Source information: Rfam assigns this 234-nucleotide sequence from Moorena producens to the family "HNH endonuclease-associated RNA and ORF (HEARO) RNA". The family's RNA type in Rfam is non-coding RNA gene. Pairs were carried over by alignment from the consensus structure, which is taken from published work. Lineage of the source: Bacteria > Cyanophyceae > Coleofasciculales > Moorena > Moorena producens. On this family, see Weinberg et al., Nature 2009: "Exceptional structured noncoding RNAs revealed by bacterial metagenome analysis".
[Rfam]
RNA sequence: GGGAGACUUGUAAAACAGAAUAAAACGGAGUAAUACCGGAUUAUUCGCCUUGGUGGGAAGUCUCCCCAGUUAGAGUUCGUGUGAUUGCACACUGACUACGUUAUUAAGGUCAACACACCCCUAGGUUAGACAGCCUUGUGGCACUGUUGACAAGAAUUAAACAGCUAACCGUUUUACAUUAAGCAGUGUUCUUGUCGUAAAAAGCCUUAAUAACAUUAACGAGUCAAACCUUAC
Numbered sequence: 001g002g003g004a005g006a007c008u009u010g011u012a013a014a015a016c017a018g019a020a021u022a023a024a025a026c027g028g029a030g031u032a033a034u035a036c037c038g039g040a041u042u043a044u045u046c047g048c049c050u051u052g053g054u055g056g057g058a059a060g061u062c063u064c065c066c067c068a069g070u071u072a073g074a075g076u077u078c079g080u081g082u083g084a085u086u087g088c089a090c091a092c093u094g095a096c097u098a099c100g101u102u103a104u105u106a107a108g109g110u111c112a113a114c115a116c117a118c119c120c121c122u123a124g125g126u127u128a129g130a131c132a133g134c135c136u137u138g139u140g141g142c143a144c145u146g147u148u149g150a151c152a153a154g155a156a157u158u159a160a161a162c163a164g165c166u167a168a169c170c171g172u173u174u175u176a177c178a179u180u181a182a183g184c185a186g187u188g189u190u191c192u193u194g195u196c197g198u199a200a201a202a203a204g205c206c207u208u209a210a211u212a213a214c215a216u217u218a219a220c221g222a223g224u225c226a227a228a229c230c231u232u233a234c
Stems, first nucleotide, its partner, number of pairs: 001066008069220005074097004100214011115147002119141002121138001123136004129225003149196009161187002164184003168180001